[Rfam]
RNA sequence: AUCAAAGCGAUGACGAAGAGAGUAGAUUAUUUUGUAGUCUUCAGAGAGAACUUCCUCGGCUGAAAGAAGUUUGGCUGCUGAUAAUCGAAGUGCACUUCUGAGCAUUGAAACUGAAAGUGGUUACGAUUAGGUUUCAACGGAUCUUUCCGUUAUCAAGUUCGAGUGAGAAUGUUUGGAUAUAAAAACAUUCUAAACAGGGUGGAACCGCGGAUUAACCGUCUCUGUA
Numbered sequence: 001a002u003c004a005a006a007g008c009g010a011u012g013a014c015g016a017a018g019a020g021a022g023u024a025g026a027u028u029a030u031u032u033u034g035u036a037g038u039c040u041u042c043a044g045a046g047a048g049a050a051c052u053u054c055c056u057c058g059g060c061u062g063a064a065a066g067a068a069g070u071u072u073g074g075c076u077g078c079u080g081a082u083a084a085u086c087g088a089a090g091u092g093c094a095c096u097u098c099u100g101a102g103c104a105u106u107g108a109a110a111c112u113g114a115a116a117g118u119g120g121u122u123a124c125g126a127u128u129a130g131g132u133u134u135c136a137a138c139g140g141a142u143c144u145u146u147c148c149g150u151u152a153u154c155a156a157g158u159u160c161g162a163g164u165g166a167g168a169a170u171g172u173u174u175g176g177a178u179a180u181a182a183a184a185a186c187a188u189u190c191u192a193a194a195c196a197g198g199g200u201g202g203a204a205c206c207g208c209g210g211a212u213u214a215a216c217c218g219u220c221u222c223u224g225u226a
Stems, first nucleotide, its partner, number of pairs: 007103002015098004025086006037075003048072006106136007138149003166191009196223004207219004
T-box leader: a 226-nucleotide RNA sequence from Vulcanibacillus modesticaldus. Uncharged tRNA acts as the effector for transcription antitermination of genes in the T-box leader family. It scores 138 bits against the family's covariance model. Rfam 15.1 lists 19,395 matches to the family in 1,923 species. The organism belongs to Vulcanibacillus, within Bacteria.